mir-5345 microRNA precursor family: a 74-nucleotide sequence from Ascaris suum. Pairs were carried over by alignment from the consensus structure, which was predicted with RNAalifold. It is one of the family's seed sequences.
RNA sequence: GUGCGCUCAAUAAGGCACUGGGUUGGUCAGCUGGGGUUUCUUAGCGCAACUGGCCAUUCCAUUGCCUGGUCGAG
Numbered sequence: 001g002u003g004c005g006c007u008c009a010a011u012a013a014g015g016c017a018c019u020g021g022g023u024u025g026g027u028c029a030g031c032u033g034g035g036g037u038u039u040c041u042u043a044g045c046g047c048a049a050c051u052g053g054c055c056a057u058u059c060c061a062u063u064g065c066c067u068g069g070u071c072g073a074g
Stems, first nucleotide, its partner, number of pairs: 006074003013067005019061003022057001024056007032048001035045001037043001